[Rfam]
RNA sequence: GAUAAAGGAUCUUCGACUAAGUACCGACACGUUCUGUGUCGAACAUCGAAGUCACCACAUCCUAUGAA
Numbered sequence: 001g002a003u004a005a006a007g008g009a010u011c012u013u014c015g016a017c018u019a020a021g022u023a024c025c026g027a028c029a030c031g032u033u034c035u036g037u038g039u040c041g042a043a044c045a046u047c048g049a050a051g052u053c054a055c056c057a058c059a060u061c062c063u064a065u066g067a068a
Stems, first nucleotide, its partner, number of pairs: 011051006026040005056066002
Bacillaceae-1 RNA: a 68-nucleotide RNA sequence from Bacillus sp. J14TS2. The family's RNA type in Rfam is small RNA. The source organism's lineage runs through Bacteria, Bacillota, Caryophanales, Bacillaceae and Bacillus. The match comes from Rfam's covariance-model search (48 bits).